[Rfam]
RNA sequence: UCAUGUCGCACGGGAGAGUCUCGACCGGCCUCAGCGUCGAGGUCGAGCGCCGAAGGGGCAAGCAUCCCCGGAACCUCUCAGGCACCCGGACCGUGCGAUCAGG
Numbered sequence: 001u002c003a004u005g006u007c008g009c010a011c012g013g014g015a016g017a018g019u020c021u022c023g024a025c026c027g028g029c030c031u032c033a034g035c036g037u038c039g040a041g042g043u044c045g046a047g048c049g050c051c052g053a054a055g056g057g058g059c060a061a062g063c064a065u066c067c068c069c070g071g072a073a074c075c076u077c078u079c080a081g082g083c084a085c086c087c088g089g090a091c092c093g094u095g096c097g098a099u100c101a102g103g
Base pairs, nucleotide, nucleotide: 006098007097008096009095010094011093012092013091020047021046022045023044024043025042026041049083050082051081052079053078056077057076058075